Description
Small nucleolar RNA Z278: a 115-nucleotide RNA sequence from Artemisia annua. The literature on the family includes a 2003 paper in Nucleic Acids Res by Chen et al., "The high diversity of snoRNAs in plants: identification and comparative study of 120 snoRNA genes from Oryza sativa". Taxonomically the source falls in Artemisia (Eukaryota, Embryophyta, Tracheophyta, Mesangiospermae). Rfam describes the family as follows. snoZ278 is a C/D box small nucleolar RNA. Its methylation guide targets have not been reported.

[Rfam]
Nucleotides: 115
Base pairs, nucleotide, nucleotide: 001115002114003113048062049061050060051059052058
Number, partner (000 for none) and nucleotide at each position: 001115g002114c003113c004000u005000a006000u007000g008000a009000u010000g011000a012000a013000a014000u015000a016000a017000u018000c019000c020000a021000a022000a023000u024000g025000u026000a027000c028000g029000a030000g031000g032000u033000a034000c035000a036000g037000u038000u039000g040000a041000u042000c043000c044000g045000a046000g047000a048062c049061c050060u051059u052058g053000u054000u055000u056000a057000a058052c059051a060050g061049g062048g063000g064000a065000a066000c067000c068000c069000c070000u071000u072000g073000g074000u075000g076000a077000a078000a079000c080000u081000g082000u083000a084000u085000u086000u087000c088000a089000u090000a091000u092000g093000a094000u095000a096000u097000u098000u099000a100000u101000g102000g103000a104000u105000u106000u107000a108000a109000c110000u111000g112000a113003g114002g115001u